Source information
Shown here is a 194-nucleotide RNA from Mediterraneibacter torques, a member of the family "M-box riboswitch aptamer (ykoK leader)". From the family's description: M-box riboswitch, also know as ykoK leader is described as a metaloregulatory RNA that sense divalent metals and function as a genetic control element of genes related to divalent metal transport in bacteria. It was first reported upstream of the B.subtilis ykoK gene and genes with related functions in other bacteria. The source organism's lineage runs through Bacteria, Bacillati, Bacillota, Lachnospiraceae and Mediterraneibacter.
RNA sequence: ACAUCAUUUCGGUAGGUGAGGUUACCACAGGGAUUGGGAUAUUUGACAUGCUUCAAGCAUUCGAUAGGACCCGGAGAUUGCUGCCGCGAGAUUGUGGAGACACGAUUAGUUGGUCAGCAGGCUGUGUCGAGAAGGCACAACCUAAUGCAAUUGAUAUGCCCUGUGAUACUAAAGCUUGAACGAUGCAUUUUAUA
Numbered sequence: 001a002c003a004u005c006a007u008u009u010c011g012g013u014a015g016g017u018g019a020g021g022u023u024a025c026c027a028c029a030g031g032g033a034u035u036g037g038g039a040u041a042u043u044u045g046a047c048a049u050g051c052u053u054c055a056a057g058c059a060u061u062c063g064a065u066a067g068g069a070c071c072c073g074g075a076g077a078u079u080g081c082u083g084c085c086g087c088g089a090g091a092u093u094g095u096g097g098a099g100a101c102a103c104g105a106u107u108a109g110u111u112g113g114u115c116a117g118c119a120g121g122c123u124g125u126g127u128c129g130a131g132a133a134g135g136c137a138c139a140a141c142c143u144a145a146u147g148c149a150a151u152u153g154a155u156a157u158g159c160c161c162u163g164u165g166a167u168a169c170u171a172a173a174g175c176u177u178g179a180a181c182g183a184u185g186c187a188u189u190u191u192a193u194a
Stems, first nucleotide, its partner, number of pairs: 006189001008187001010185001011181001013133001015176003020170003026165007077151005084112001086110002093104004120142002123139001126136003